[Rfam]
RNA sequence: UCCGGACGGACGCCGAACCCUGCCGCGUCUGGAGCCAACGAGACGUUCCGCGGCAGGGACGGGGGACCCGAUCUUUUCGGUCCUCUACGAGGGCCUUGGGGUGAAGCGCGACCGGUUCGUCCGGGAGCGCCGGGUGUUCUCCCACCCGAACCCGACAGCUCACCCCGCAGGCAGCCAGGAGAGGCCAC
Numbered sequence: 001u002c003c004g005g006a007c008g009g010a011c012g013c014c015g016a017a018c019c020c021u022g023c024c025g026c027g028u029c030u031g032g033a034g035c036c037a038a039c040g041a042g043a044c045g046u047u048c049c050g051c052g053g054c055a056g057g058g059a060c061g062g063g064g065g066a067c068c069c070g071a072u073c074u075u076u077u078c079g080g081u082c083c084u085c086u087a088c089g090a091g092g093g094c095c096u097u098g099g100g101g102u103g104a105a106g107c108g109c110g111a112c113c114g115g116u117u118c119g120u121c122c123g124g125g126a127g128c129g130c131c132g133g134g135u136g137u138u139c140u141c142c143c144a145c146c147c148g149a150a151c152c153c154g155a156c157a158g159c160u161c162a163c164c165c166c167g168c169a170g171g172c173a174g175c176c177a178g179g180a181g182a183g184g185c186c187a188c
Stems, first nucleotide, its partner, number of pairs: 012172003018058010060167005069098002099153003107129003132147004
Dot-bracket structure: ...........(((...((((((((((.....................)))))))))).(((((....((..........................))(((.....(((.................)))..((((........))))...))).........)))))..)))................
RNA: c-di-AMP riboswitch aptamer (ydaO/yuaA leader)
Organism: Georgenia subflava